[Rfam]
RNA sequence: UUAAGACCAAGUUUGCGCCUAGAUAAGCACUAAAAGCGAAAGCUCAAUUAUCUGGGAAGGUCUGAGGUGCCCGUCACCCGAGAGGGGAUGCAUGAAAAUGCAGAAAUGGCCAACAGAAACAAACCAGUUACUGUGUUGAAAGGGUCAUAAGGCAUGAUUCUUAGUACAAUGCGCAAAGGCUGAAAGGCUAACUCAAUUCAGACUACUCUGGUCUUAA
Numbered sequence: 001u002u003a004a005g006a007c008c009a010a011g012u013u014u015g016c017g018c019c020u021a022g023a024u025a026a027g028c029a030c031u032a033a034a035a036g037c038g039a040a041a042g043c044u045c046a047a048u049u050a051u052c053u054g055g056g057a058a059g060g061u062c063u064g065a066g067g068u069g070c071c072c073g074u075c076a077c078c079c080g081a082g083a084g085g086g087g088a089u090g091c092a093u094g095a096a097a098a099u100g101c102a103g104a105a106a107u108g109g110c111c112a113a114c115a116g117a118a119a120c121a122a123a124c125c126a127g128u129u130a131c132u133g134u135g136u137u138g139a140a141a142g143g144g145u146c147a148u149a150a151g152g153c154a155u156g157a158u159u160c161u162u163a164g165u166a167c168a169a170u171g172c173g174c175a176a177a178g179g180c181u182g183a184a185a186g187g188c189u190a191a192c193u194c195a196a197u198u199c200a201g202a203c204u205a206c207u208c209u210g211g212u213c214u215u216a217a
Stems, first nucleotide, its partner, number of pairs: 001217004007211003012177007021053005062201005068154004075087001077086003089102005106148006123134002178189004

Nuclear RNase P: a 217-nucleotide RNA from Stentor coeruleus. A search with the family's covariance model found it, with a score of 84 bits. Rfam describes the family as follows. Ribonuclease P (RNase P) is a ubiquitous endoribonuclease, found in archaea, bacteria and eukarya as well as chloroplasts and mitochondria.